[Rfam]
RNA sequence: UGCCCUCUGGGAGUCUUAAUUUAUUUCUUAACCUUUGCUGCGUAAGAGUCUUGGGUGUUUUUAAAUGAUUGUUUCUUCUUCAUGCU
Numbered sequence: 001u002g003c004c005c006u007c008u009g010g011g012a013g014u015c016u017u018a019a020u021u022u023a024u025u026u027c028u029u030a031a032c033c034u035u036u037g038c039u040g041c042g043u044a045a046g047a048g049u050c051u052u053g054g055g056u057g058u059u060u061u062u063a064a065a066u067g068a069u070u071g072u073u074u075c076u077u078c079u080u081c082a083u084g085c086u
Stems, first nucleotide, its partner, number of pairs: 009079004016064004025055002031049002034046005

This 86-nucleotide RNA sequence from Microcebus murinus belongs to the Rfam family "Stem loopII regulatory element in POLB". Rfam classes the family as a cis-regulatory element. NCBI's taxonomy places the organism under Eukaryota, Bilateria, Deuterostomia, Primates, Microcebus. Rfam 15.1 lists 197 matches to the family in 138 species. On this family, see Sarnowska et al., Nucleic Acids Res 2007: "Hairpin structure within the 3'UTR of DNA polymerase beta mRNA acts as a post-transcriptional regulatory element and interacts with Hax-1". A search with the family's covariance model found it, with a score of 97 bits.